[Rfam]
RNA sequence: ACGACCUUACUUGAACAGGAUCUGUUUUAUAGACUCGUACUUCAAUAUCCUUGAUUUCUAAGGAGACUGGCCUCUAAACCUGGUUGAUGAACCAUGACCGUGCGAUCAGAGCGUGAUUAACGGCCACGAUCAUUUUCGGAUGUGUCCGAUGCUAUAGAGGAUCGUUACUCGGCUCGGCGUAGUCUUUGUCGGGGUGGUUGCACGGCGGUCUGACAGAUC
Numbered sequence: 001a002c003g004a005c006c007u008u009a010c011u012u013g014a015a016c017a018g019g020a021u022c023u024g025u026u027u028u029a030u031a032g033a034c035u036c037g038u039a040c041u042u043c044a045a046u047a048u049c050c051u052u053g054a055u056u057u058c059u060a061a062g063g064a065g066a067c068u069g070g071c072c073u074c075u076a077a078a079c080c081u082g083g084u085u086g087a088u089g090a091a092c093c094a095u096g097a098c099c100g101u102g103c104g105a106u107c108a109g110a111g112c113g114u115g116a117u118u119a120a121c122g123g124c125c126a127c128g129a130u131c132a133u134u135u136u137c138g139g140a141u142g143u144g145u146c147c148g149a150u151g152c153u154a155u156a157g158a159g160g161a162u163c164g165u166u167a168c169u170c171g172g173c174u175c176g177g178c179g180u181a182g183u184c185u186u187u188g189u190c191g192g193g194g195u196g197g198u199u200g201c202a203c204g205g206c207g208g209u210c211u212g213a214c215a216g217a218u219c
Base pairs, nucleotide, nucleotide: 001038002037003035006032007031013027014026015025016024017023018022043069044068046066048064049063050062051061052060053059078218080216081215082214098205099204100203101202102201103200104199105198106197107196108195110166111165112164113163120155122153123152124151127148128146129145130144131142132141133140134139168193169192170191171190172189173188176185177184